[Rfam]
RNA sequence: GCCCGACCGUUCUCUUUCCCCCCGGAGACGGUCGAGGAGACGACCCCCGCUCUCCCCCCCGGCGGGGGUCGUCAUGA
Numbered sequence: 001g002c003c004c005g006a007c008c009g010u011u012c013u014c015u016u017u018c019c020c021c022c023c024g025g026a027g028a029c030g031g032u033c034g035a036g037g038a039g040a041c042g043a044c045c046c047c048c049g050c051u052c053u054c055c056c057c058c059c060c061g062g063c064g065g066g067g068g069u070c071g072u073c074a075u076g077a
Stems, first nucleotide, its partner, number of pairs: 002037002004034007012027003039073013
A member of the RNA family "6C RNA" from Allostreptomyces psammosilenae, 77 nucleotides long. The family's consensus secondary structure is taken from published work. It scores 50 bits against the family's covariance model. It is annotated as a cis-regulatory element.